[Rfam]
RNA sequence: AAGCACGCUAUCCUAAGGACCCGGGCUUGUGUUGUAGCCCACGGUUCUCCAAAUGUGUGCAAGAAAAUAGGGUGGUCUUUGACUGCUGUGGCCUCUUGUGCCAUAAGCAGCCACUCAACUGUCCGACAGUU
Numbered sequence: 001a002a003g004c005a006c007g008c009u010a011u012c013c014u015a016a017g018g019a020c021c022c023g024g025g026c027u028u029g030u031g032u033u034g035u036a037g038c039c040c041a042c043g044g045u046u047c048u049c050c051a052a053a054u055g056u057g058u059g060c061a062a063g064a065a066a067a068u069a070g071g072g073u074g075g076u077c078u079u080u081g082a083c084u085g086c087u088g089u090g091g092c093c094u095c096u097u098g099u100g101c102c103a104u105a106a107g108c109a110g111c112c113a114c115u116c117a118a119c120u121g122u123c124c125g126a127c128a129g130u131u
Stems, first nucleotide, its partner, number of pairs: 013043001018039001020037001024033001070124006085111002088104004
About this RNA: A member of the RNA family "Small nucleolar RNA SNORA44" from Labrus bergylta, 131 nucleotides long. It scores 55 bits against the family's covariance model. Rfam classes the family as an H/ACA-box small nucleolar RNA. Rfam's curators write: ACA44 is a member of the H/ACA class of snoRNA that guide the sites of modification of uridines to pseudouridines. The organism belongs to Labrus, within Eukaryota. On this family, see Huttenhofer et al., EMBO J 2001: "RNomics: an experimental approach that identifies 201 candidates for novel, small, non-messenger RNAs in mouse".